[Rfam]
RNA sequence: AUUUUCGGGUAAUCGCUGCAAUGCUUGACAUUGUCGAGGAAAGUCCAUGCUCGCACGGUUCUGAGAUGACCGUAGUGUUCGUGCUUAGUGAAUAAAUAAGCUAAGGCAGUCUUUUGGCUGACGGCGGGAGGAAAACCUAAGUCUUUUAUAGGAUAUGGUUGAAACUCUCUGAAAGUGCCACAGUGACGAAGCUGGUGCGGAAACGUAACAGGUGGAACGAGGUAAACCCCACGAGUGAGAAACCCAAAUUAUGGUAGGGGCACUCUCCUGAAGGAAAUGAAUGGAUGGAGAGACGUGAAUGCUUGCAUCUCACGUAGAUAGAUGAUUACUACCCGGUUGUACGAGAUGUAAAUCGUUUGAGUACUCGGGCACAAAACAUGGCUUAUUGAA
Numbered sequence: 001a002u003u004u005u006c007g008g009g010u011a012a013u014c015g016c017u018g019c020a021a022u023g024c025u026u027g028a029c030a031u032u033g034u035c036g037a038g039g040a041a042a043g044u045c046c047a048u049g050c051u052c053g054c055a056c057g058g059u060u061c062u063g064a065g066a067u068g069a070c071c072g073u074a075g076u077g078u079u080c081g082u083g084c085u086u087a088g089u090g091a092a093u094a095a096a097u098a099a100g101c102u103a104a105g106g107c108a109g110u111c112u113u114u115u116g117g118c119u120g121a122c123g124g125c126g127g128g129a130g131g132a133a134a135a136c137c138u139a140a141g142u143c144u145u146u147u148a149u150a151g152g153a154u155a156u157g158g159u160u161g162a163a164a165c166u167c168u169c170u171g172a173a174a175g176u177g178c179c180a181c182a183g184u185g186a187c188g189a190a191g192c193u194g195g196u197g198c199g200g201a202a203a204c205g206u207a208a209c210a211g212g213u214g215g216a217a218c219g220a221g222g223u224a225a226a227c228c229c230c231a232c233g234a235g236u237g238a239g240a241a242a243c244c245c246a247a248a249u250u251a252u253g254g255u256a257g258g259g260g261c262a263c264u265c266u267c268c269u270g271a272a273g274g275a276a277a278u279g280a281a282u283g284g285a286u287g288g289a290g291a292g293a294c295g296u297g298a299a300u301g302c303u304u305g306c307a308u309c310u311c312a313c314g315u316a317g318a319u320a321g322a323u324g325a326u327u328a329c330u331a332c333c334c335g336g337u338u339g340u341a342c343g344a345g346a347u348g349u350a351a352a353u354c355g356u357u358u359g360a361g362u363a364c365u366c367g368g369g370c371a372c373a374a375a376a377c378a379u380g381g382c383u384u385a386u387u388g389a390a
Stems, first nucleotide, its partner, number of pairs: 004390003007386001008330007016036001018034004041384003045381005050239005055073004060069002079234005084105006106122001107120005123229002126169004134160004141154005175227002177223003192211003196207004243259003263292006293315006332369005338363003
Rfam assigns this 390-nucleotide RNA sequence from Viridibacillus arenosi to the family "Bacterial RNase P class B". It is annotated as a ribozyme. Lineage of the source: Bacteria > Bacillota > Bacilli > Caryophanales > Viridibacillus arenosi. About the family: Ribonuclease P (RNase P) is a ubiquitous endoribonuclease, found in archaea, bacteria and eukarya as well as chloroplasts and mitochondria. Its best characterised activity is the generation of mature 5'-ends of tRNAs by cleaving the 5'-leader elements of precursor-tRNAs. Clan: RNaseP clan.